[Rfam]
RNA sequence: GCCAAUAUGUUGCCUUCUUCUGCAUUUGCACCUGCACCUUACUAGUUUUCUUUCUUUUGUUCUCUUUAUAAACUUUCAAGAAAAUCAUGAUUUCAAGAAAAUCAAGAUUUUCUCUUAUAAAGCAGAAUAAGAGAUGGGAAGAAGAAAGAGGUGUAGGUGUGAGUGCAGGAGAAUGCCAUUUUGGA
Numbered sequence: 001g002c003c004a005a006u007a008u009g010u011u012g013c014c015u016u017c018u019u020c021u022g023c024a025u026u027u028g029c030a031c032c033u034g035c036a037c038c039u040u041a042c043u044a045g046u047u048u049u050c051u052u053u054c055u056u057u058u059g060u061u062c063u064c065u066u067u068a069u070a071a072a073c074u075u076u077c078a079a080g081a082a083a084a085u086c087a088u089g090a091u092u093u094c095a096a097g098a099a100a101a102u103c104a105a106g107a108u109u110u111u112c113u114c115u116u117a118u119a120a121a122g123c124a125g126a127a128u129a130a131g132a133g134a135u136g137g138g139a140a141g142a143a144g145a146a147a148g149a150g151g152u153g154u155a156g157g158u159g160u161g162a163g164u165g166c167a168g169g170a171g172a173a174u175g176c177c178a179u180u181u182u183g184g185a
Stems, first nucleotide, its partner, number of pairs: 002184004007179003012176002015173025055100004060095001
RNA: MIR530 microRNA precursor family
Organism: Jatropha curcas